Overview: isrI Hfq binding RNA: a 97-nucleotide RNA sequence from Enterobacteriaceae bacterium strain FGI 57. The family's consensus secondary structure was predicted with WAR.

RNA sequence: AUCACCGGGGUCUGGCAUCUGACCAGAGGUGAUGACAUCUGCCAUAACGGUGAGGCUGAAGUAUUAGCCGGUCCGUUAGUACCACCUCUUUAAAAUU
Dot-bracket structure: ......((.(((...(.(((......))).)..))).)).(((.....)))..............................................